Shown here is a 75-nucleotide RNA sequence, a member of the family "ASpks TB sRNA". The base pairs follow the family's consensus structure, which is taken from published work. A reference for the family is Arnvig and Young (2009), "Identification of small RNAs in Mycobacterium tuberculosis", Mol Microbiol. The match comes from Rfam's covariance-model search (58 bits).

[Rfam]
RNA sequence: CUUGACCGACCCGAGCAGCAGCGGCCGGUCCGCGUCACGGGCGCCGCCGUAGGCGGCGGCGGCCGCCUGCACUUC
Numbered sequence: 001c002u003u004g005a006c007c008g009a010c011c012c013g014a015g016c017a018g019c020a021g022c023g024g025c026c027g028g029u030c031c032g033c034g035u036c037a038c039g040g041g042c043g044c045c046g047c048c049g050u051a052g053g054c055g056g057c058g059g060c061g062g063c064c065g066c067c068u069g070c071a072c073u074u075c
Stems, first nucleotide, its partner, number of pairs: 015025002032070002038065002043060003047056003